[Rfam]
RNA sequence: UGACCCGGUCGUUCCCGACGCCAAAGACCAAAGAACCGGGGAAAGAACCGAACCCUCCCCUGCCGUCCCCGUCGAUCACUCGCCGGAGUGAAUAUGCCGAACUCAGCUGGCGCGGAGGGUCAGUUGUGCGGCAGCGUCUGCCGCAACAGGUCCGGACAUACUUCGGCCCUCGCCGGGACUGCCAUCCCACUGCGAGGGCCUGACCAUCGGGAAGCAGCCGCUUCCCG
Numbered sequence: 001u002g003a004c005c006c007g008g009u010c011g012u013u014c015c016c017g018a019c020g021c022c023a024a025a026g027a028c029c030a031a032a033g034a035a036c037c038g039g040g041g042a043a044a045g046a047a048c049c050g051a052a053c054c055c056u057c058c059c060c061u062g063c064c065g066u067c068c069c070c071g072u073c074g075a076u077c078a079c080u081c082g083c084c085g086g087a088g089u090g091a092a093u094a095u096g097c098c099g100a101a102c103u104c105a106g107c108u109g110g111c112g113c114g115g116a117g118g119g120u121c122a123g124u125u126g127u128g129c130g131g132c133a134g135c136g137u138c139u140g141c142c143g144c145a146a147c148a149g150g151u152c153c154g155g156a157c158a159u160a161c162u163u164c165g166g167c168c169c170u171c172g173c174c175g176g177g178a179c180u181g182c183c184a185u186c187c188c189a190c191u192g193c194g195a196g197g198g199c200c201u202g203a204c205c206a207u208c209g210g211g212a213a214g215c216a217g218c219c220g221c222u223u224c225c226c227g
Stems, first nucleotide, its partner, number of pairs: 001206002008067001010065002076091006106135004165200005171194003175188004210225005

Rfam assigns this 227-nucleotide sequence from Streptomyces fuscichromogenes to the family "Streptomyces sRNA 4677".
The base pairs follow the family's consensus structure.
The family's RNA type in Rfam is small RNA.
Located in the intergenic region between anti-sigma factor SCO4677 gene and a putative regulatory protein gene SCO4676. scr4677 expression requires the SCO4677 activity and scr4677 sRNA itself seem to affect the levels of the SCO4676-associated transcripts.
For this family Rfam cites "Complex intra-operonic dynamics mediated by a small RNA in Streptomyces coelicolor" (Hindra et al., PLoS One, 2014).
It scores 99 bits against the family's covariance model.